[Rfam]
RNA sequence: UUUUAGCCCCGAUAAAAGUGGAAAUCCUUUUAUUUUUUUCUUUAAAAAAUAAAAGAUUACAACGUAUAGCGGGAAUAGCU
Numbered sequence: 001u002u003u004u005a006g007c008c009c010c011g012a013u014a015a016a017a018g019u020g021g022a023a024a025u026c027c028u029u030u031u032a033u034u035u036u037u038u039u040c041u042u043u044a045a046a047a048a049a050u051a052a053a054a055g056a057u058u059a060c061a062a063c064g065u066a067u068a069g070c071g072g073g074a075a076u077a078g079c080u
Base pairs, nucleotide, nucleotide: 009072010071011070013068014067018063019062023058024057025056026055029053030052031051032050033049034048035047036046037045038044
Overview:
Flavo-1 RNA: an 80-nucleotide RNA from Flavobacterium cellulosilyticum. Rfam classes the family as a small RNA. A search with the family's covariance model found it, with a score of 78 bits. NCBI's taxonomy places the organism under Bacteria, Pseudomonadati, Bacteroidota, Flavobacteriales, Flavobacterium.